The family of this 130-nucleotide RNA sequence from Corchorus capsularis is "Small nucleolar RNA snoR77".
RNA sequence: AGGCAGCCUCCGUGCCGUGACCAUGGCAAUAAGGGGGUGUUACACUGCUCGCACAUUAAAUAUGGCUUAUGCUCUUCAGACUUGCUGAGAUUUCAUUCCUUGAAGCUGGUCUAGUAAGCCUAAGUACAUU
Numbered sequence: 001a002g003g004c005a006g007c008c009u010c011c012g013u014g015c016c017g018u019g020a021c022c023a024u025g026g027c028a029a030u031a032a033g034g035g036g037g038u039g040u041u042a043c044a045c046u047g048c049u050c051g052c053a054c055a056u057u058a059a060a061u062a063u064g065g066c067u068u069a070u071g072c073u074c075u076u077c078a079g080a081c082u083u084g085c086u087g088a089g090a091u092u093u094c095a096u097u098c099c100u101u102g103a104a105g106c107u108g109g110u111c112u113a114g115u116a117a118g119c120c121u122a123a124g125u126a127c128a129u130u
Stems, first nucleotide, its partner, number of pairs: 002041004007037005013031002017027001066124003071119003078112005084106003089098002
Its family is annotated with nucleolus and RNA processing in the Gene Ontology. By type it is an H/ACA-box small nucleolar RNA. The source organism's lineage runs through Eukaryota, malvids, Malvaceae, Grewioideae and Corchorus.